[Rfam]
Source information:
Shown here is a 206-nucleotide RNA sequence from Candidatus Epulonipiscioides saccharophilum, a member of the family "Group II catalytic intron D1-D4-5". Group II introns are found in rRNA, tRNA and mRNA of organelles in fungi, plants and protists, and also in mRNA in bacteria. Lineage of the source: Bacteria > Bacillota > Clostridia > Lachnospiraceae > Candidatus Epulonipiscioides. The pairing is the family consensus, mapped onto this sequence.

RNA sequence: AAGAACUAAUAAUCUGAGCAAUCGAAUGAUAGAGUAACGUCUUGAAAGGUUGUCCAUAAUACUCCGAAUGGCAAGAAAAUGGUAAAAUUUAUCUUGUCAUAAGCUCGGUGAAGUCGGCUGAGAGCAUAUCCAAGUAUUAGUAUUAACUAAUAACGGAAAAGUGAACCAGAGGUGGUCAAGUAUGUGAUAGGUCGGUGGUCUAAAAU
Numbered sequence: 001a002a003g004a005a006c007u008a009a010u011a012a013u014c015u016g017a018g019c020a021a022u023c024g025a026a027u028g029a030u031a032g033a034g035u036a037a038c039g040u041c042u043u044g045a046a047a048g049g050u051u052g053u054c055c056a057u058a059a060u061a062c063u064c065c066g067a068a069u070g071g072c073a074a075g076a077a078a079a080u081g082g083u084a085a086a087a088u089u090u091a092u093c094u095u096g097u098c099a100u101a102a103g104c105u106c107g108g109u110g111a112a113g114u115c116g117g118c119u120g121a122g123a124g125c126a127u128a129u130c131c132a133a134g135u136a137u138u139a140g141u142a143u144u145a146a147c148u149a150a151u152a153a154c155g156g157a158a159a160a161g162u163g164a165a166c167c168a169g170a171g172g173u174g175g176u177c178a179a180g181u182a183u184g185u186g187a188u189a190g191g192u193c194g195g196u197g198g199u200c201u202a203a204a205a206u
Stems, first nucleotide, its partner, number of pairs: 018053006031043002034040001054198004064108004068100009078090002115194005124185006131156001137153002162178002165176004
Rfam links the family to the GO term Group II intron splicing. The literature on the family includes a 2001 paper in Trends Genet by Bonen and Vogel, "The ins and outs of group II introns".